RNA sequence: ACCUCAUGGUUAGGACAUUGGAUGAGCUUACCAUUAAACCUGUCCCAUACCUUGUAUAUAGGCUCUCCAUUCAAUUGAUGAAAGUUUGUGAUUUCAUUAUGCAAUU
Number, nucleotide and partner (000 for none) at each position: 001a106002c000003c000004u103005c101006a100007u000008g000009g000010u000011u000012a000013g000014g000015a000016c000017a000018u000019u000020g000021g000022a000023u000024g000025a000026g000027c000028u000029u000030a000031c000032c000033a000034u000035u000036a000037a000038a000039c000040c000041u000042g000043u000044c000045c000046c000047a000048u000049a000050c000051c000052u000053u000054g000055u000056a000057u074058a000059u000060a071061g000062g000063c000064u000065c000066u000067c000068c000069a000070u000071u060072c000073a000074a057075u000076u000077g000078a000079u000080g000081a000082a000083a000084g000085u000086u000087u000088g000089u000090g000091a000092u000093u000094u000095c000096a000097u000098u000099a000100u006101g005102c000103a004104a000105u000106u001
A member of the RNA family "Plant small nucleolar RNA R71" from Capsicum baccatum, 106 nucleotides long. Rfam classes the family as a C/D-box small nucleolar RNA. It scores 48 bits against the family's covariance model. Lineage of the source: Eukaryota > Streptophyta > eudicotyledons > Pentapetalae > Capsicum. Rfam links the family to the GO terms RNA processing and nucleolus. The literature on the family includes a 2003 paper in Trends Plant Sci by Brown et al., "Plant snoRNAs: functional evolution and new modes of gene expression". Pairs were carried over by alignment from the consensus structure, which was predicted with PFOLD.